[Rfam]
RNA sequence: CUCGGGCACCUUUCACUCGGAUCGUCCGGCACGUACCUGCCGGUGAAGGGACCAUUGU
Dot-bracket structure: ........(((((((..........((((((......)))))))))))))........
RNA: msiK RNA